Rfam assigns this 132-nucleotide sequence from Halopseudomonas pachastrellae to the family "ALIL pseudoknot". A search with the family's covariance model found it, with a score of 57 bits. Its family is annotated with positive regulation of translational frameshifting in the Gene Ontology. Lineage of the source: Bacteria > Pseudomonadota > Pseudomonadales > Pseudomonadaceae > Halopseudomonas.

RNA sequence: CGCUUUUUUCGCCCAGGCGGAGCCCGACGGGCAGGCCAUCCUGCGCCGUUUGAAGUGAUCUGGCAGCUGAUCGACAAGCACCGGCAAAGCUUUGGAGUCGAGCCACUGUGCCGCGUGUUGCAAGUGUCUCCA
Numbered sequence: 001c002g003c004u005u006u007u008u009u010c011g012c013c014c015a016g017g018c019g020g021a022g023c024c025c026g027a028c029g030g031g032c033a034g035g036c037c038a039u040c041c042u043g044c045g046c047c048g049u050u051u052g053a054a055g056u057g058a059u060c061u062g063g064c065a066g067c068u069g070a071u072c073g074a075c076a077a078g079c080a081c082c083g084g085c086a087a088a089g090c091u092u093u094g095g096a097g098u099c100g101a102g103c104c105a106c107u108g109u110g111c112c113g114c115g116u117g118u119u120g121c122a123a124g125u126g127u128c129u130c131c132a
Stems, first nucleotide, its partner, number of pairs: 016047004093132005107124001109122003113118001